Shown here is a 170-nucleotide sequence from Torulaspora globosa, a member of the family "Small nucleolar RNA snR8".
The source organism's lineage runs through Eukaryota, Opisthokonta, saccharomyceta, Saccharomycetaceae and Torulaspora.
The base pairs follow the family's consensus structure, which was predicted with WAR.
[Rfam]
Nucleotides: 170
Base pairs, nucleotide, nucleotide: 019078020077022074023073031064032063034061035060037057038056039055040054041053098163099162100161101160104157105156106155115148116147117146119144120143121142122141123139124138125137
Number, partner (000 for none) and nucleotide at each position: 001000u002000a003000a004000g005000a006000a007000a008000g009000u010000g011000a012000u013000a014000c015000g016000a017000a018000a019078g020077c021000c022074u023073u024000c025000u026000a027000u028000u029000c030000a031064c032063u033000g034061u035060g036000c037057c038056a039055u040054c041053u042000u043000g044000a045000u046000u047000u048000a049000c050000c051000g052000u053041a054040g055039a056038u057037g058000a059000u060035c061034a062000g063032a064031g065000g066000g067000g068000a069000a070000a071000a072000g073023a074022a075000g076000c077020g078019c079000a080000a081000g082000a083000g084000c085000a086000a087000c088000g089000u090000a091000a092000c093000u094000a095000c096000a097000a098163c099162c100161a101160u102000g103000a104157g105156c106155g107000u108000c109000c110000u111000c112000a113000u114000a115148c116147u117146g118000u119144c120143c121142a122141g123139g124138c125137u126000a127000a128000a129000u130000u131000u132000c133000c134000c135000a136000c137125g138124g139123c140000a141122c142121u143120g144119g145000u146117c147116g148115g149000u150000a151000a152000c153000u154000g155106c156105g157104c158000a159000a160101a161100u162099g163098g164000a165000a166000c167000a168000u169000c170000u

Description: It scores 138 bits against the family's covariance model. Gene Ontology terms of the family: nucleolus and RNA processing.